[Rfam]
RNA sequence: GAGUCGACAUGUGUGCGAGUCAACGGGCGGGAGUAAACCCGUAAGGCGCAAGGAAGGCUGGCUGGCGGGAUCCCCUCGAGGGUUGCACCGCCGACCGACCUUGAUCUUCCGAGAAGGGUUCGAGUGAGAGCAUGCCUGUCGGGACCCGAAAGAUGGUGAACUAUGCCUGAGCGGGGCGAAGCCGGAGGAAACUCUGGUGGAGGCCCGCAGCGAUGCUGACGUGCAAAUCGUUCGUCGACUUGGGUAUAGGGGCGAAAGACUAAUCGAACCGUCUAGUAGCUGGUU
Number, nucleotide and partner (000 for none) at each position: 001g000002a000003g000004u000005c141006g140007a139008c138009a137010u000011g135012u134013g133014u132015g131016c130017g000018a000019g047020u046021c045022a000023a000024c041025g040026g039027g038028c000029g000030g000031g000032a000033g000034u000035a000036a000037a000038c027039c026040c025041g024042u000043a000044a000045g021046g020047c019048g000049c000050a000051a059052g058053g000054a000055a000056g000057g000058c052059u051060g000061g000062c000063u000064g092065g091066c090067g089068g088069g000070a000071u000072c000073c082074c000075c000076u000077c000078g000079a000080g000081g000082g073083u000084u000085g000086c000087a000088c068089c067090g066091c065092c064093g000094a125095c124096c122097g121098a120099c118100c117101u116102u000103g000104a000105u112106c111107u000108u000109c000110c000111g106112a105113g000114a000115a000116g101117g100118g099119u000120u098121c097122g096123a000124g095125u094126g000127a000128g000129a000130g016131c015132a014133u013134g012135c011136c000137u009138g008139u007140c006141g005142g000143g000144a000145c283146c282147c000148g280149a000150a000151a000152g273153a272154u271155g270156g269157u268158g000159a000160a000161c249162u248163a247164u246165g245166c244167c243168u242169g241170a240171g239172c237173g000174g206175g205176g204177c203178g000179a000180a000181g198182c197183c196184g195185g194186a193187g192188g000189a000190a000191a000192c187193u186194c185195u184196g183197g182198u181199g000200g000201a000202g000203g177204c176205c175206c174207g000208c000209a000210g235211c234212g233213a232214u000215g231216c230217u000218g229219a228220c000221g000222u000223g000224c000225a000226a000227a000228u219229c218230g216231u215232u213233c212234g211235u210236c000237g172238a000239c171240u170241u169242g168243g167244g166245u165246a164247u163248a162249g161250g000251g261252g260253c000254g000255a000256a000257a000258g000259a000260c252261u251262a000263a000264u000265c000266g000267a000268a157269c156270c155271g154272u153273c152274u000275a000276g000277u000278a000279g000280c148281u000282g146283g145284u000285u000

Eukaryotic large subunit ribosomal RNA: a 285-nucleotide part of an RNA from Salix koriyanagi. The match comes from Rfam's covariance-model search (2668 bits). The base pairs follow the family's consensus structure, which is taken from published work. A reference for the family is Cannone et al. (2002), "The comparative RNA web (CRW) site: an online database of comparative sequence and structure information for ribosomal, intron, and other RNAs", BMC Bioinformatics.